[Rfam]
RNA sequence: GUUCCAGAAUCAUCACGCUAACUUUUUGGGGGCCUAUAAGCGUGGUAAGGAAUCAAUGCUGGGCAAACAGGACAUUGCAGACAUGCUACUU
Numbered sequence: 001g002u003u004c005c006a007g008a009a010u011c012a013u014c015a016c017g018c019u020a021a022c023u024u025u026u027u028g029g030g031g032g033c034c035u036a037u038a039a040g041c042g043u044g045g046u047a048a049g050g051a052a053u054c055a056a057u058g059c060u061g062g063g064c065a066a067a068c069a070g071g072a073c074a075u076u077g078c079a080g081a082c083a084u085g086c087u088a089c090u091u
Base pairs, nucleotide, nucleotide: 011049014044015043016042017041018040019039022029023028031091032090059070060069061068075088077086078085079084
A member of the RNA family "Tombusvirus 3' UTR region IV" from Larus smithsonianus, 91 nucleotides long. Its family is annotated with viral RNA genome replication in the Gene Ontology. Pairs were carried over by alignment from the consensus structure, which is taken from published work. Rfam's curators write: Tomato bushy stunt virus is the prototype member of the Tombusviridae family. In addition to viral proteins p33 and the RNA-dependent RNA polymerase p92, and unknown host factors, RNA signals within the UTRs are necessary for genome replication. This element contains a pseudoknot. The family's RNA type in Rfam is cis-regulatory element.